[Rfam]
RNA sequence: UUAGUCUCAUACACAAUGGUAAGCACGUAAUUAUGCUAGUAUGAGUAGAGUAUAAUUAUAUUG
Numbered sequence: 001u002u003a004g005u006c007u008c009a010u011a012c013a014c015a016a017u018g019g020u021a022a023g024c025a026c027g028u029a030a031u032u033a034u035g036c037u038a039g040u041a042u043g044a045g046u047a048g049a050g051u052a053u054a055a056u057u058a059u060a061u062u063g
Base pairs, nucleotide, nucleotide: 007044008043009042010041011040012039028058029057031055032054033053034052035051036050037049
The record is a 63-nucleotide RNA from Alphacoronavirus rhinolophi, which matches "Coronavirus 3' UTR pseudoknot" in Rfam.
From the family's description: Coronaviruses are plus-strand RNA viruses with ~30kb genomes. The 3' UTR region of coronavirus genomes contains a conserved ~55nt pseudoknot structure which has been shown to be necessary for viral genome replication. The mechanism of cis-regulation is unclear, but this element is postulated to function in the plus-strand.
Gene Ontology term of the family: viral genome replication.
The sequence is in the family's curated seed alignment.
A reference for the family is Williams et al. (1999), "A phylogenetically conserved hairpin-type 3' untranslated region pseudoknot functions in coronavirus RNA replication", J Virol.